[Rfam]
RNA: Plastid-psbN 5UTR RNA
Organism: Gossypium aridum
RNA sequence: UACGACACCAAUCAAAAAAGUCGUUCCCUAUCCAAGGGCUAUCUUACCAUAUUCCGAAUUU
Numbered sequence: 001u002a003c004g005a006c007a008c009c010a011a012u013c014a015a016a017a018a019a020g021u022c023g024u025u026c027c028c029u030a031u032c033c034a035a036g037g038g039c040u041a042u043c044u045u046a047c048c049a050u051a052u053u054c055c056g057a058a059u060u061u
Stems, first nucleotide, its partner, number of pairs: 017045002020042002023039004